RNA: Bacterial RNase P class B
Organism: Floricoccus tropicus
RNA sequence: AUUUUCGGAUAAUCGCACUAUUUUAAUAUGGUGAGGAAAGUCCAUGCUCGCACAAGCUGAGAUGCUUGUAGUGUUUGUGCUAGGUGAAAUAAUAAGCCUAGGGACGGAAGUUACGGCUGAGAAAUUCACUAAGUAUAGUUAUAUAUAUGUGAAAAGUAUCUGUAAAAGUGCCAAAGAGACGAGUUUAACUAGAAAUGGUUAAGAUGGAACGUGGUAAACCCCUCAAGCGAGCAACCCAAACUUUGGUAGGGGCACUUGUUAAGCGGAAUUGAACGCAAGACGAGGUCGAUAAGACAGACAGAUGAUUAUCGAAGGUGUAAUACCUGGUUACACUGGAACAAAACAUGGCUUAUAGAA
Numbered sequence: 001a002u003u004u005u006c007g008g009a010u011a012a013u014c015g016c017a018c019u020a021u022u023u024u025a026a027u028a029u030g031g032u033g034a035g036g037a038a039a040g041u042c043c044a045u046g047c048u049c050g051c052a053c054a055a056g057c058u059g060a061g062a063u064g065c066u067u068g069u070a071g072u073g074u075u076u077g078u079g080c081u082a083g084g085u086g087a088a089a090u091a092a093u094a095a096g097c098c099u100a101g102g103g104a105c106g107g108a109a110g111u112u113a114c115g116g117c118u119g120a121g122a123a124a125u126u127c128a129c130u131a132a133g134u135a136u137a138g139u140u141a142u143a144u145a146u147a148u149g150u151g152a153a154a155a156g157u158a159u160c161u162g163u164a165a166a167a168g169u170g171c172c173a174a175a176g177a178g179a180c181g182a183g184u185u186u187a188a189c190u191a192g193a194a195a196u197g198g199u200u201a202a203g204a205u206g207g208a209a210c211g212u213g214g215u216a217a218a219c220c221c222c223u224c225a226a227g228c229g230a231g232c233a234a235c236c237c238a239a240a241c242u243u244u245g246g247u248a249g250g251g252g253c254a255c256u257u258g259u260u261a262a263g264c265g266g267a268a269u270u271g272a273a274c275g276c277a278a279g280a281c282g283a284g285g286u287c288g289a290u291a292a293g294a295c296a297g298a299c300a301g302a303u304g305a306u307u308a309u310c311g312a313a314g315g316u317g318u319a320a321u322a323c324c325u326g327g328u329u330a331c332a333c334u335g336g337a338a339c340a341a342a343a344c345a346u347g348g349c350u351u352a353u354a355g356a357a
Base pairs, nucleotide, nucleotide: 004357005356006355007353008310009309010308011307012306013305014304016033017032018031019030020029021028038351039350040349042348043347044346045345046344047231048230049229050228051227052069053068054067055066056065057064075226076225077224079222080101081100082099083098084097085096102114103112104111105110115221116220119160120159126152127151128150129149133146134145135144136143137142168219169218170215171214172213184203185202186201187200188199189198190197191196235251236250237249255284256283257282258281259280260279285295286294287293314334315333316332317331318330319329320328321327